[Rfam]
This 86-nucleotide RNA from Aramus guarauna belongs to the Rfam family "Small nucleolar RNA SNORD121A". On this family, see Yang et al., Nucleic Acids Res 2006: "snoSeeker: an advanced computational package for screening of guide and orphan snoRNA genes in the human genome". Taxonomically the source falls in Aramus (Eukaryota, Craniata, Sauropsida, Theropoda). It is annotated as a C/D-box small nucleolar RNA.
RNA sequence: GUCCAAAAGACAGUGAUAUUGUCUUUUCCAAGCACAUAUCCAAUUACUGUGUGUGGAAAAUGACUGUUGCUAAGUGAUUUUUGGAU
Numbered sequence: 001g002u003c004c005a006a007a008a009g010a011c012a013g014u015g016a017u018a019u020u021g022u023c024u025u026u027u028c029c030a031a032g033c034a035c036a037u038a039u040c041c042a043a044u045u046a047c048u049g050u051g052u053g054u055g056g057a058a059a060a061u062g063a064c065u066g067u068u069g070c071u072a073a074g075u076g077a078u079u080u081u082u083g084g085a086u
Base pairs, nucleotide, nucleotide: 001086002085003084004083005082006081008079009078010075011074